[Rfam]
RNA: Iron response element II
RNA sequence: UUUUUAUCAUGUACAGUGCUGCAUACAGAAA
Number, nucleotide and partner (000 for none) at each position: 001u031002u030003u029004u028005u027006a000007u025008c000009a024010u023011g022012u021013a020014c018015a000016g000017u000018g014019c000020u013021g012022c011023a010024u009025a007026c000027a005028g004029a003030a002031a001